[Rfam]
Source information
Bacterial RNase P class A: a 348-nucleotide RNA sequence from Clostridium beijerinckii. By type it is a ribozyme. The organism belongs to Clostridium beijerinckii, within Bacteria.
RNA sequence: CGAGUGAGACGUGCAAUCGCUGCUAGACUUAGAUCUAGGAGAGGAAAGUCCGAGCUCCAUAGGGCAGGGUGCUGGAUAACGUCCAGUCAAGGCGACUUGAAGGAAAGUGCAACAGAGAUAUACCGCCUAAGUUUACUUAGGUAAGGGUGGAAAGGUGAUGGUAAGAGCUCACCAGCGUGAUGGAGACUUCACGGCUAUGUAAACCCCACUUGGAGCAAGACCGAAUAGGGAGGCAAUUAAGGGGCUGCCCGUCCCGCCUCCGGGUGCGUCGCUUGAGCUUACUGGCAACAGUAGGCCUAGAUAGAUGAUUGCUUAAUACAGAACUCGGCUUAUGGCUUAUCUCGCAUA
Number, nucleotide and partner (000 for none) at each position: 001c344002g343003a342004g341005u000006g000007a338008g337009a000010c335011g333012u000013g312014c311015a310016a309017u308018c307019g000020c041021u040022g000023c038024u037025a036026g035027a034028c000029u000030u000031a000032g000033a000034u027035c026036u025037a024038g023039g000040a021041g020042a000043g000044g000045a000046a331047a330048g329049u000050c328051c327052g326053a325054g324055c215056u214057c213058c212059a000060u000061a000062g250063g249064g248065c247066a000067g211068g210069g209070u208071g207072c086073u085074g084075g083076a082077u000078a000079a000080c000081g000082u076083c075084c074085a073086g072087u101088c099089a098090a097091g096092g000093c000094g000095a000096c091097u090098u089099g088100a000101a087102g206103g205104a000105a000106a000107g204108u203109g200110c199111a198112a000113c000114a000115g000116a000117g000118a000119u000120a000121u000122a000123c146124c145125g142126c141127c140128u139129a138130a137131g136132u000133u000134u000135a000136c131137u130138u129139a128140g127141g126142u125143a000144a000145g124146g123147g000148u000149g000150g000151a000152a000153a000154g173155g172156u171157g170158a169159u000160g168161g000162u000163a000164a000165g000166a000167g000168c160169u158170c157171a156172c155173c154174a000175g195176c193177g192178u191179g190180a189181u000182g187183g000184a000185g000186a000187c182188u000189u180190c179191a178192c177193g176194g000195c175196u000197a000198u111199g110200u109201a000202a000203a108204c107205c103206c102207c071208a070209c069210u068211u067212g058213g057214a056215g055216c000217a000218a000219g270220a269221c268222c000223g000224a000225a000226u000227a000228g000229g261230g260231a259232g258233g257234c256235a000236a000237u000238u000239a000240a000241g255242g254243g253244g252245c251246u000247g065248c064249c063250c062251g245252u244253c243254c242255c241256g234257c233258c232259u231260c230261c229262g000263g000264g000265u000266g000267c000268g221269u220270c219271g000272c000273u000274u000275g000276a000277g296278c295279u294280u293281a292282c291283u290284g289285g000286c000287a000288a000289c284290a283291g282292u281293a280294g279295g278296c277297c000298u000299a000300g000301a000302u000303a000304g000305a000306u000307g018308a017309u016310u015311g014312c013313u000314u000315a000316a000317u000318a000319c000320a000321g000322a000323a000324c054325u053326c052327g051328g050329c048330u047331u046332a000333u011334g000335g010336c000337u008338u007339a000340u000341c004342u003343c002344g001345c000346a000347u000348a000
It is one of the family's seed sequences.